[Rfam]
RNA sequence: UACAGGCUGCAUUGUACGUAAUAAUAUUAAGUUUUAACCUUUGAUCUGUAAUAGGGAGUUUAAGAUAGAGAGCGGACUGGUAUGCCUAGCGGAAUCGUUAGGACGAACAUGAAACUCUUUGCAAACACCCACUUUGAGGAGUGGUGGUUUAAAACUUUCAAUGUAAUGACUUACGGCAAAAGCGGCUUCUUA
Number, nucleotide and partner (000 for none) at each position: 001u000002a190003c000004a188005g187006g186007c185008u184009g183010c182011a000012u179013u178014g177015u176016a000017c175018g174019u173020a000021a000022u000023a000024a000025u000026a000027u000028u000029a000030a156031g155032u154033u153034u000035u151036a150037a149038c147039c146040u000041u000042u000043g000044a000045u000046c000047u000048g000049u000050a000051a000052u000053a000054g130055g129056g128057a000058g126059u125060u124061u123062a000063a000064g000065a000066u000067a120068g119069a118070g117071a116072g115073c000074g000075g000076a000077c000078u000079g108080g000081u000082a000083u000084g000085c102086c101087u100088a099089g098090c097091g096092g000093a000094a000095u000096c091097g090098u089099u088100a087101g086102g085103a000104c000105g000106a000107a000108c079109a000110u000111g000112a000113a000114a000115c072116u071117c070118u069119u068120u067121g000122c000123a061124a060125a059126c058127a000128c056129c055130c054131a000132c000133u000134u000135u000136g000137a000138g000139g000140a000141g000142u000143g000144g000145u000146g039147g038148u000149u037150u036151a035152a000153a033154a032155c031156u030157u000158u000159c000160a000161a000162u000163g000164u000165a000166a000167u000168g000169a000170c000171u000172u000173a019174c018175g017176g015177c014178a013179a012180a000181a000182g010183c009184g008185g007186c006187u005188u004189c000190u002191u000192a000

6S / SsrS RNA: a 192-nucleotide sequence from Candidatus Kurthia intestinigallinarum. NCBI's taxonomy places the organism under Bacteria, Bacillota, Caryophanales, Caryophanaceae, Kurthia. By type it is a non-coding RNA gene. About the family: E. coli 6S RNA was the first non coding RNA to be sequenced, but its function was unknown until recently. It consists of 184 nucleotides that fold into an extended hairpin structure with a large single-stranded internal bulge. The 6S RNA specifically associates with RNA polymerase holoenzyme containing the sigma70 specificity factor. This interaction represses expression from a sigma70-dependent promoter during stationary phase. 6S RNA homologs have recently been identified in most bacterial genomes. Many Gram-positive species have two copies of 6S RNA. In Bacillus subtilis, both copies appear to interact with RNA polymerase holoenzyme containing the housekeeping sigma factor and be expressed during different stages of growth. In many proteobacteria, 6S RNA may be processed from a transcript encoding homologs of the E. coli YgfA protein which is a putative 5-formyltetrahydrofolate cycloligase activity. Rfam 15.1 lists 5,006 matches to the family in 4,638 species.